Rfam assigns this 141-nucleotide sequence from Anolis carolinensis to the family "Small nucleolar RNA SNORA14". The family's consensus secondary structure was predicted with RNAfold. Lineage of the source: Eukaryota > Euteleostomi > Sarcopterygii > Toxicofera > Anolis. ACA14 is a member of the H/ACA class of snoRNA that guide the sites of modification of uridines to pseudouridines.

[Rfam]
RNA sequence: AAGCAUUCUCAAACCCUCCUGGUACUGUUGCCAUUAUAACUUCCAGGAUAAGAAUGAAUGCUAAAUAAAAAUGUAGAGUUAUCCAAAAUGCAGAACAUUCUGUUGUAGUUUUGCAUUAUUUCACCUCUUCAACAAAAAUAU
Number, nucleotide and partner (000 for none) at each position: 001a000002a000003g061004c060005a059006u058007u000008c000009u053010c052011a000012a000013a000014c000015c000016c000017u048018c047019c046020u045021g044022g043023u000024a041025c000026u039027g000028u000029u000030g000031c000032c000033a000034u000035u000036a000037u000038a000039a026040c000041u024042u000043c022044c021045a020046g019047g018048a017049u000050a000051a000052g010053a009054a000055u000056g000057a000058a006059u005060g004061c003062u000063a000064a000065a141066u140067a139068a000069a000070a000071a000072u131073g130074u000075a128076g127077a126078g000079u000080u000081a000082u000083c000084c000085a000086a000087a117088a116089u115090g114091c113092a112093g111094a000095a109096c108097a000098u000099u000100c105101u000102g000103u000104u000105g100106u000107a000108g096109u095110u000111u093112u092113g091114c090115a089116u088117u087118a000119u000120u000121u000122c000123a000124c000125c000126u077127c076128u075129u000130c073131a072132a000133c000134a000135a000136a000137a000138a000139u067140a066141u065